[Rfam]
RNA sequence: GGUAUCGGUAUCGUAACAGUAAUUGAAGUCAGUACGAGAGGAACCCUUCAUUCAAAUAAUUGGUAUUUGCGGCUGGUUGAAAGGCCAAUGCCGCGAAGCUACCAUUUGCUGGAUAAUGGCUGAACGCCUCUAAGUCAGAAUCCAUGCUGGAAACGAUACUAAAUGUAUUUCUCCUGUACUAGAUGAGUACAAAUAGGCUUUCGAGCUGAAAACCAUAUCUUGUUCUUGGUUGUAUUUGCGGAAAGGCAGGUACAUCCAGAGCUACAUGAUAAUGCUAAUACGGAGUAAUGAUGAAUCGCAUGCAGACGACAUGAAACUGACGGGGUAUUGUAAGUAGUAGAGUGGCCUUUGUUGCUACGAUGUACUGAGAUUAAGCCCUUGUCCUUGAAUUUGU
Numbered sequence: 001g002g003u004a005u006c007g008g009u010a011u012c013g014u015a016a017c018a019g020u021a022a023u024u025g026a027a028g029u030c031a032g033u034a035c036g037a038g039a040g041g042a043a044c045c046c047u048u049c050a051u052u053c054a055a056a057u058a059a060u061u062g063g064u065a066u067u068u069g070c071g072g073c074u075g076g077u078u079g080a081a082a083g084g085c086c087a088a089u090g091c092c093g094c095g096a097a098g099c100u101a102c103c104a105u106u107u108g109c110u111g112g113a114u115a116a117u118g119g120c121u122g123a124a125c126g127c128c129u130c131u132a133a134g135u136c137a138g139a140a141u142c143c144a145u146g147c148u149g150g151a152a153a154c155g156a157u158a159c160u161a162a163a164u165g166u167a168u169u170u171c172u173c174c175u176g177u178a179c180u181a182g183a184u185g186a187g188u189a190c191a192a193a194u195a196g197g198c199u200u201u202c203g204a205g206c207u208g209a210a211a212a213c214c215a216u217a218u219c220u221u222g223u224u225c226u227u228g229g230u231u232g233u234a235u236u237u238g239c240g241g242a243a244a245g246g247c248a249g250g251u252a253c254a255u256c257c258a259g260a261g262c263u264a265c266a267u268g269a270u271a272a273u274g275c276u277a278a279u280a281c282g283g284a285g286u287a288a289u290g291a292u293g294a295a296u297c298g299c300a301u302g303c304a305g306a307c308g309a310c311a312u313g314a315a316a317c318u319g320a321c322g323g324g325g326u327a328u329u330g331u332a333a334g335u336a337g338u339a340g341a342g343u344g345g346c347c348u349u350u351g352u353u354g355c356u357a358c359g360a361u362g363u364a365c366u367g368a369g370a371u372u373a374a375g376c377c378c379u380u381g382u383c384c385u386u387g388a389a390u391u392u393g394u
Base pairs, nucleotide, nucleotide: 007160008159009158010157011156012155013154014153017149018148019147020146022052024050025049026048027047028046053108054107055106056105057104061101062100063099068095069094070093071092072091074087075086076085077084078083110144111143112142117137118136119135120134121133167289168288169287171285172284173283293392294391295390296389299313300312301311302310319383320382321381322380323378324377325376327371328370334365335364336363339361342358343357344356345355346354
Dot-bracket structure: ......((((((((..((((.(.(((((.................))))).)(((((...(((....(((((.(((((....)))))...)))))...)))..))))).(((....(((((...........)))))....))).))))...))))))))......(((.(((.............................................................................................................))).)))...((((..((((.......)))).....(((((((.((.....(((..(..(((((.......)))))..).)))....))....))).)))).....))))..
A member of the RNA family "Eukaryotic large subunit ribosomal RNA" from Phycomyces blakesleeanus, 394 nucleotides of a longer RNA.
Taxonomically the source falls in Phycomyces blakesleeanus (Eukaryota, Opisthokonta, Fungi, Phycomyces).
Its family is annotated with structural constituent of ribosome and ribosome in the Gene Ontology.